[Rfam]
RNA sequence: UGAAGUCCCGCGGGAGAGACCGGUUCUAGAGCGAUUGCUAAACAAUCGCCAACACCGGCGCCGAAGGCGCAACAUCCGCCCGGAAUCGCUCAGGCAAAAGGACCGCGGGAUUAAC
Dot-bracket structure: .....((((((((......((((...............................)))).(((((..(((...(........)....))))).))).......)))))))).....
A member of the RNA family "Glycine riboswitch aptamer" from Lamprobacter modestohalophilus, 115 nucleotides long. The organism belongs to Lamprobacter, within Bacteria. A search with the family's covariance model found it, with a score of 74 bits. The base pairs follow the family's consensus structure.